[Rfam]
Rfam assigns this 114-nucleotide RNA from Otolemur garnettii to the family "Potassium channel RNA editing signal". Lineage of the source: Eukaryota > Euteleostomi > Dipnotetrapodomorpha > Galagidae > Otolemur.
Nucleotides: 114
Stems, first nucleotide, its partner, number of pairs: 005110001007108005014101002018097002021095002037077004050062001
Number, partner (000 for none) and nucleotide at each position: 001000a002000c003000c004000a005110g006000a007108u008107a009106u010105g011104g012000u013000g014101a015100c016000a017000u018097g019096g020000u021095a022094c023000c024000a025000a026000a027000a028000a029000c030000c031000a032000u033000a034000g035000c036000g037077g038076g039075g040074a041000a042000g043000a044000u045000u046000u047000u048000u049000g050062g051000u052000u053000c054000c055000a056000u057000c058000u059000g060000u061000u062050c063000g064000c065000u066000a067000a068000g069000u070000g071000g072000a073000g074040u075039c076038u077037u078000g079000g080000u081000c082000a083000u084000u085000g086000c087000u088000c089000u090000g091000c092000c093000u094022g095021u096019c097018c098000c099000a100015g101014u102000g103000a104011u105010c106009g107008u108007g109000u110005c111000c112000a113000a114000c

This family represents a group of sequences related to the human potassium channel Kv1.1 hairpin element which directs the efficient modification of an adenosine to inosine by an adenosine deaminase acting on RNA (ADAR). The ADAR modification causes an isoleucine/valine recoding event which lies in the ion-conducting pore of the potassium channel. It is thought that this editing event targets the process of fast inactivation and allows a more rapid recovery from inactivation at negative potentials.